The record is a 75-nucleotide RNA sequence from Pseudacidovorax intermedius, which matches "Xanthine riboswitch aptamer (NMT1 RNA)" in Rfam. Gene Ontology term of the family: purine nucleobase binding. The match comes from Rfam's covariance-model search (41 bits). Taxonomically the source falls in Pseudacidovorax (Bacteria, Betaproteobacteria, Burkholderiales, Comamonadaceae). For this family Rfam cites "Insights into xanthine riboswitch structure and metal ion-mediated ligand recognition" (Xu et al., Nucleic Acids Res, 2021).

[Rfam]
RNA sequence: CCAGAGAGUAGAAGCGUUCAGCAACGCCCACCUGCCGCCACGGCGGGUGUCAGCGGCCCGGGAAUUGCUCUUGAC
Numbered sequence: 001c002c003a004g005a006g007a008g009u010a011g012a013a014g015c016g017u018u019c020a021g022c023a024a025c026g027c028c029c030a031c032c033u034g035c036c037g038c039c040a041c042g043g044c045g046g047g048u049g050u051c052a053g054c055g056g057c058c059c060g061g062g063a064a065u066u067g068c069u070c071u072u073g074a075c
Base pairs, nucleotide, nucleotide: 005071006070007069008068009067010066015060018062019061021057022056025055026054027053